Record summary:
The record is a 118-nucleotide RNA sequence from Streptomyces sp. DJ, which matches "Actinobacteria sRNA Ms_IGR-7" in Rfam. A reference for the family is Li et al. (2013), "Identification of small RNAs in Mycobacterium smegmatis using heterologous Hfq", RNA. By type it is a small RNA. The base pairs follow the family's consensus structure. Rfam 15.1 lists 463 matches to the family in 194 species.

[Rfam]
RNA sequence: GAGAGAUACCUUGCUGAUCGUGCUCGACGGAACCCUAGAAAAGUCCCAUCACCGCAGGUCACAAGGCAUCUCUUCGUUACGGCCUCCCUCCAGCACCGAGGUCAACCGGUGGAUUCGG
Numbered sequence: 001g002a003g004a005g006a007u008a009c010c011u012u013g014c015u016g017a018u019c020g021u022g023c024u025c026g027a028c029g030g031a032a033c034c035c036u037a038g039a040a041a042a043g044u045c046c047c048a049u050c051a052c053c054g055c056a057g058g059u060c061a062c063a064a065g066g067c068a069u070c071u072c073u074u075c076g077u078u079a080c081g082g083c084c085u086c087c088c089u090c091c092a093g094c095a096c097c098g099a100g101g102u103c104a105a106c107c108g109g110u111g112g113a114u115u116c117g118g
Stems, first nucleotide, its partner, number of pairs: 002073006009066005015061003019057001021056003026050002030046001032044002098116003102112003